[Rfam]
The record is a 382-nucleotide RNA sequence from Neorhizobium galegae, which matches "Alphaproteobacteria transfer-messenger RNA" in Rfam. By type it is a non-coding RNA gene. The organism belongs to Neorhizobium galegae bv. orientalis, within Bacteria.

RNA sequence: CCCCUUUUCACCGGCGGGCGAUGCGCCUAUAUCAACGUUGCCGGACUUCGGUCCGGCUAUGGCAAUAAACGGCCGGUGUAAUAAACCUAUUGGACCCGGGGGCGGUACCCGGCGCCUCCACCAAAAACCGGUCGGUCACAUUGGGAAACCAUGAGGACCGGCUUUUGAUGGGGGCGAAAUAGGAUCGACAAGGGCUUAAAGAUCGAACUUUUGCUCGGCAUGAUACCACCGUCAUCGGGUCAAAAAGUGUAGUUGCAAACGACAACAACGCUAAGGGUUAUGCUCUCGCUGCCUAAUGGCGGUGCGGGAAAUCCGAACUAAGUCCUUAGAGGUAGCACUUUAAGGCGGGGUCCGAAGGCACCUGGCAACAGAAGCCUUCACC
Numbered sequence: 001c002c003c004c005u006u007u008u009c010a011c012c013g014g015c016g017g018g019c020g021a022u023g024c025g026c027c028u029a030u031a032u033c034a035a036c037g038u039u040g041c042c043g044g045a046c047u048u049c050g051g052u053c054c055g056g057c058u059a060u061g062g063c064a065a066u067a068a069a070c071g072g073c074c075g076g077u078g079u080a081a082u083a084a085a086c087c088u089a090u091u092g093g094a095c096c097c098g099g100g101g102g103c104g105g106u107a108c109c110c111g112g113c114g115c116c117u118c119c120a121c122c123a124a125a126a127a128c129c130g131g132u133c134g135g136u137c138a139c140a141u142u143g144g145g146a147a148a149c150c151a152u153g154a155g156g157a158c159c160g161g162c163u164u165u166u167g168a169u170g171g172g173g174g175c176g177a178a179a180u181a182g183g184a185u186c187g188a189c190a191a192g193g194g195c196u197u198a199a200a201g202a203u204c205g206a207a208c209u210u211u212u213g214c215u216c217g218g219c220a221u222g223a224u225a226c227c228a229c230c231g232u233c234a235u236c237g238g239g240u241c242a243a244a245a246a247g248u249g250u251a252g253u254u255g256c257a258a259a260c261g262a263c264a265a266c267a268a269c270g271c272u273a274a275g276g277g278u279u280a281u282g283c284u285c286u287c288g289c290u291g292c293c294u295a296a297u298g299g300c301g302g303u304g305c306g307g308g309a310a311a312u313c314c315g316a317a318c319u320a321a322g323u324c325c326u327u328a329g330a331g332g333u334a335g336c337a338c339u340u341u342a343a344g345g346c347g348g349g350g351u352c353c354g355a356a357g358g359c360a361c362c363u364g365g366c367a368a369c370a371g372a373a374g375c376c377u378u379c380a381c382c
Stems, first nucleotide, its partner, number of pairs: 040057007061215005071208001074205004086194003090191003096112005113176007216231003221242003226238002348363004354379006